[Rfam]
The record is a 75-nucleotide sequence from Xanthomonas euvesicatoria, which matches "Xanthomonas sRNA sX9" in Rfam. Rfam 15.1 lists 309 matches to the family in 52 species. Rfam classes the family as a small RNA. The source organism's lineage runs through Bacteria, Pseudomonadati, Gammaproteobacteria, Lysobacterales and Xanthomonas.
Nucleotides: 075
Stems, first nucleotide, its partner, number of pairs: 003015001006012001020035004025030001047072005
Number, partner (000 for none) and nucleotide at each position: 001000a002000g003015g004000c005000g006012c007000u008000g009000c010000u011000c012006g013000g014000a015003c016000a017000c018000c019000c020035c021034g022033g023032c024000u025030c026000c027000g028000c029000u030025g031000c032023g033022c034021c035020g036000g037000c038000c039000a040000u041000g042000c043000c044000a045000g046000c047072u048071g049070a050069c051068g052000g053000c054000u055000g056000g057000u058000c059000g060000c061000g062000g063000u064000g065000u066000g067000a068051u069050g070049u071048c072047g073000a074000c075000c